A member of the RNA family "Eukaryotic small subunit ribosomal RNA" from Adineta vaga, 169 nucleotides of a longer RNA. A reference for the family is Cannone et al. (2002), "The comparative RNA web (CRW) site: an online database of comparative sequence and structure information for ribosomal, intron, and other RNAs", BMC Bioinformatics. Pairs were carried over by alignment from the consensus structure, which is taken from published work. NCBI's taxonomy places the organism under Eukaryota, Spiralia, Rotifera, Bdelloidea, Adineta.
[Rfam]
RNA sequence: CCGCCCGUCGCUACUACCGAUUGAAUGUUUUAGUGAGAUCUUCGGCUUGGUUUUCCGAGCGGCUCUCGGGUCGUUCGGUUUUUAUCGAAAAGAUGCUCAAACUGGAUCAUUUAGAGGAAGUAAAAGUCGUAACAAGGUAUUCGUAGGUGAACCUGCGUAUGGAUCAUUA
Numbered sequence: 001c002c003g004c005c006c007g008u009c010g011c012u013a014c015u016a017c018c019g020a021u022u023g024a025a026u027g028u029u030u031u032a033g034u035g036a037g038a039u040c041u042u043c044g045g046c047u048u049g050g051u052u053u054u055c056c057g058a059g060c061g062g063c064u065c066u067c068g069g070g071u072c073g074u075u076c077g078g079u080u081u082u083u084a085u086c087g088a089a090a091a092g093a094u095g096c097u098c099a100a101a102c103u104g105g106a107u108c109a110u111u112u113a114g115a116g117g118a119a120g121u122a123a124a125a126g127u128c129g130u131a132a133c134a135a136g137g138u139a140u141u142c143g144u145a146g147g148u149g150a151a152c153c154u155g156c157g158u159a160u161g162g163a164u165c166a167u168u169a
Stems, first nucleotide, its partner, number of pairs: 001136001003133001006129002009126001012122004017117002021113001023112005029106006037098002040095001042093002047088005055078004060073004138161003142157006